[Rfam]
RNA sequence: UUUGACCGAGCCCAGCCACAGCGGCCGCUCCGCCGGCCGCCCGCGCCCGUAGACGGCCAGCAGCGCCUGCGCCUC
Numbered sequence: 001u002u003u004g005a006c007c008g009a010g011c012c013c014a015g016c017c018a019c020a021g022c023g024g025c026c027g028c029u030c031c032g033c034c035g036g037c038c039g040c041c042c043g044c045g046c047c048c049g050u051a052g053a054c055g056g057c058c059a060g061c062a063g064c065g066c067c068u069g070c071g072c073c074u075c
Stems, first nucleotide, its partner, number of pairs: 015025003031071003038065002045058001047056003